Rfam assigns this 92-nucleotide RNA sequence from Scleromatobacter humisilvae to the family "Glycine riboswitch aptamer". The organism belongs to Scleromatobacter, within Bacteria. The match comes from Rfam's covariance-model search (62 bits).
RNA sequence: GGCUGCUUGUCAGGAGAGAGCCGGUUCGCCGGCCGCCGAAGGCGCAGGGGCCGACGCCCCGAACGCUCAGGCAAAAGGACUGACGAGACGCC
Numbered sequence: 001g002g003c004u005g006c007u008u009g010u011c012a013g014g015a016g017a018g019a020g021c022c023g024g025u026u027c028g029c030c031g032g033c034c035g036c037c038g039a040a041g042g043c044g045c046a047g048g049g050g051c052c053g054a055c056g057c058c059c060c061g062a063a064c065g066c067u068c069a070g071g072c073a074a075a076a077g078g079a080c081u082g083a084c085g086a087g088a089c090g091c092c
Stems, first nucleotide, its partner, number of pairs: 006087008020033004035072003038068002042066003048059002